[Rfam]
RNA: EcpR1
RNA sequence: AUACCCUGCGGAGUGCUCAGGUCCGCCGCAUCUCCUGGGUCCGUGGGGUUGGCCGGCUGGCGGUGGUUGGAGUGGCCUCCUUGAAGCCAUCGUCAGUCGGCCGCCUU
Numbered sequence: 001a002u003a004c005c006c007u008g009c010g011g012a013g014u015g016c017u018c019a020g021g022u023c024c025g026c027c028g029c030a031u032c033u034c035c036u037g038g039g040u041c042c043g044u045g046g047g048g049u050u051g052g053c054c055g056g057c058u059g060g061c062g063g064u065g066g067u068u069g070g071a072g073u074g075g076c077c078u079c080c081u082u083g084a085a086g087c088c089a090u091c092g093u094c095a096g097u098c099g100g101c102c103g104c105c106u107u
Base pairs, nucleotide, nucleotide: 003049004048005047006046007045008044009043010042016039017038018037019036020035021034051102052101053100054099055098056097057096058095059094060093061092062091063090064089